[Rfam]
The family of this 54-nucleotide RNA sequence from Conger conger is "UnaL2 LINE 3' element". By type it is a cis-regulatory element. Rfam's curators write: The eel long interspersed element (LINE) UnaL2 and its partner short interspersed element (SINE) share a conserved 3' tail containing a stem-loop that is critical for their retrotransposition. Pairs were carried over by alignment from the consensus structure, which is taken from published work.
RNA sequence: UCUAAUAUCAACUGUAAGUCGUUCUGGAUAAGAACGUCUGCCAAAUGCCAUUAA
Dot-bracket structure: ............((((...((((((.....))))))..))).)...........